[Rfam]
RNA sequence: GGUGCUCGACACGGGAGUCCGGAGAGCGGACUGAGAGUGGGCACACGGUUUGACACCUGCCCUUACCGUUGCACCUGAUCCGGGUCAUGCCGGCGAAGGGAGGGACAUGCCACCUAU
Numbered sequence: 001g002g003u004g005c006u007c008g009a010c011a012c013g014g015g016a017g018u019c020c021g022g023a024g025a026g027c028g029g030a031c032u033g034a035g036a037g038u039g040g041g042c043a044c045a046c047g048g049u050u051u052g053a054c055a056c057c058u059g060c061c062c063u064u065a066c067c068g069u070u071g072c073a074c075c076u077g078a079u080c081c082g083g084g085u086c087a088u089g090c091c092g093g094c095g096a097a098g099g100g101a102g103g104g105a106c107a108u109g110c111c112a113c114c115u116a117u
Stems, first nucleotide, its partner, number of pairs: 010102001011069004016063001017031005039062004074099003080093004